A member of the RNA family "Bacterial RNase P class A" from Sphingomonas chungangi, 362 nucleotides long.
[Rfam]
RNA sequence: CCAGAGGGUCGGGCGGCCGCGUCGCGCAAGCGUCGAGGAAAGUCCGGGCUCCACGGAAAGCACGGUGCCGGGUAACGCCCGGCGGGGGCGACCCCAGGGAAAGUGCCACAGAAAGGACACCGCCGUCGCUUCGGCACGGUAAGGGCGAAAGGGUGCGGCAAGAGCGCACCGCGGCUCCGGCAACGGGACCGGCACGGCAAACCCCACCGGGAGCAAGACCGAAUAGGGACCGCAUAUGGGGCCGCUUCCGCCCCGUGGUCCGGGUUGGUUGCUGGAGGCCGGGAGCGAUCCCGGCCCGAGAGGAAUGGUCGCACAGUCCCGCAAGGGAUGGACAGAACCCGGCUUACAGACCCUCUGGCGCU
Numbered sequence: 001c002c003a004g005a006g007g008g009u010c011g012g013g014c015g016g017c018c019g020c021g022u023c024g025c026g027c028a029a030g031c032g033u034c035g036a037g038g039a040a041a042g043u044c045c046g047g048g049c050u051c052c053a054c055g056g057a058a059a060g061c062a063c064g065g066u067g068c069c070g071g072g073u074a075a076c077g078c079c080c081g082g083c084g085g086g087g088g089c090g091a092c093c094c095c096a097g098g099g100a101a102a103g104u105g106c107c108a109c110a111g112a113a114a115g116g117a118c119a120c121c122g123c124c125g126u127c128g129c130u131u132c133g134g135c136a137c138g139g140u141a142a143g144g145g146c147g148a149a150a151g152g153g154u155g156c157g158g159c160a161a162g163a164g165c166g167c168a169c170c171g172c173g174g175c176u177c178c179g180g181c182a183a184c185g186g187g188a189c190c191g192g193c194a195c196g197g198c199a200a201a202c203c204c205c206a207c208c209g210g211g212a213g214c215a216a217g218a219c220c221g222a223a224u225a226g227g228g229a230c231c232g233c234a235u236a237u238g239g240g241g242c243c244g245c246u247u248c249c250g251c252c253c254c255g256u257g258g259u260c261c262g263g264g265u266u267g268g269u270u271g272c273u274g275g276a277g278g279c280c281g282g283g284a285g286c287g288a289u290c291c292c293g294g295c296c297c298g299a300g301a302g303g304a305a306u307g308g309u310c311g312c313a314c315a316g317u318c319c320c321g322c323a324a325g326g327g328a329u330g331g332a333c334a335g336a337a338c339c340c341g342g343c344u345u346a347c348a349g350a351c352c353c354u355c356u357g358g359c360g361c362u
Stems, first nucleotide, its partner, number of pairs: 001358010011347001013312006020035002023032003040345003044342005049213004058247004063209005068082005083097001084095004098204002103202002105198003120144002122140005152170006171193001172191003176187004217270004227261006238254005277296008
About this RNA: The base pairs follow the family's consensus structure, which is taken from published work.